[Rfam]
RNA sequence: UAUCAUAAGUUUGAGGCCAUAGCAGAAGCACUCAUGGCGCAGCCCUGUCAGAUUCCAGCAAAUCUGUGAAUUCUGCU
Numbered sequence: 001u002a003u004c005a006u007a008a009g010u011u012u013g014a015g016g017c018c019a020u021a022g023c024a025g026a027a028g029c030a031c032u033c034a035u036g037g038c039g040c041a042g043c044c045c046u047g048u049c050a051g052a053u054u055c056c057a058g059c060a061a062a063u064c065u066g067u068g069a070a071u072u073c074u075g076c077u
Base pairs, nucleotide, nucleotide: 013045015044016043017042021077022076023075024074025073026072027071028040029039049066050065051064052063053062054061
Rfam assigns this 77-nucleotide RNA from Alligator mississippiensis to the family "Mammalian CPEB3 ribozyme".
The source organism's lineage runs through Eukaryota, Opisthokonta, Craniata, Teleostomi and Alligator.
From the family's description: The mammalian CPEB3 ribozyme is a self cleaving RNA located in the second intron of the CPEB3 gene which belongs to a family of genes regulating messenger RNA polyadenylation. This ribozyme is highly conserved and found only in mammals. The CPEB3 ribozyme is structurally and biochemically related to the human hepatitis delta virus (HDV) ribozyme and the HDV ribozyme is proposed to have arisen from the human transcriptome. There is currently only one other known self cleaving ribozyme in mammals, the CoTC motif.
The literature on the family includes a 2006 paper in Science by Salehi-Ashtiani et al., "A genomewide search for ribozymes reveals an HDV-like sequence in the human CPEB3 gene".